[Rfam]
Overview
The record is a 134-nucleotide sequence from Algibacter lectus, which matches "SAM riboswitch aptamer (S box leader)" in Rfam. The organism belongs to Algibacter, within Bacteria. It scores 51 bits against the family's covariance model.
RNA sequence: GUGUUAUCAAGAAAGGCAGAGGGAAUAGACGUUGAAACCUUGGCAACCCUUUAAGAACCGAGAUAACUAUCAAGGAAUUAAAGAAGGUGCUACAUUCUACUUAGUAAUUUUUAAAAUUAUUAGACAGAUAACGA
Numbered sequence: 001g002u003g004u005u006a007u008c009a010a011g012a013a014a015g016g017c018a019g020a021g022g023g024a025a026u027a028g029a030c031g032u033u034g035a036a037a038c039c040u041u042g043g044c045a046a047c048c049c050u051u052u053a054a055g056a057a058c059c060g061a062g063a064u065a066a067c068u069a070u071c072a073a074g075g076a077a078u079u080a081a082a083g084a085a086g087g088u089g090c091u092a093c094a095u096u097c098u099a100c101u102u103a104g105u106a107a108u109u110u111u112u113a114a115a116a117u118u119a120u121u122a123g124a125c126a127g128a129u130a131a132c133g134a
Stems, first nucleotide, its partner, number of pairs: 002133007013041004021030001028096001042091004047087002049083006095126001100123002103120001105119005